The record is a 101-nucleotide RNA sequence from Clostridium acetireducens, which matches "THF (Tetrahydrofolate) riboswitch aptamer" in Rfam. NCBI's taxonomy places the organism under Bacteria, Bacillati, Bacillota, Clostridia, Clostridium acetireducens. Rfam's curators write: Tetrahydrofolate (THF) riboswitch was first reported for Ames et al. as an RNA motif in 5' untranslated (5'-UTR)regions of folate transport and biosynthesis genes in Firmicutes genomes.

[Rfam]
Nucleotides: 101
Base pairs, nucleotide, nucleotide: 001101002100003099004098005097010088011087012086013085014084016082017081018080019079020077021076022075026057027056029055030054031053032052033051034050035049036048040094041093042092044090061074062073063072064071
Number, partner (000 for none) and nucleotide at each position: 001101a002100g003099c004098a005097g006000a007000g008000u009000a010088g011087g012086u013085u014084u015000u016082u017081g018080u019079g020077c021076g022075u023000u024000a025000a026057g027056u028000g029055c030054u031053a032052g033051c034050a035049a036048g037000a038000c039000g040094g041093g042092a043000a044090g045000u046000u047000g048036c049035u050034u051033g052032u053031u054030a055029g056027a057026c058000g059000a060000a061074a062073a063072a064071u065000a066000a067000u068000u069000c070000u071064a072063u073062u074061u075022g076021c077020g078000a079019u080018a081017c082016a083000u084014a085013a086012a087011c088010c089000g090044c091000a092042u093041u094040c095000c096000g097005c098004u099003g100002c101001u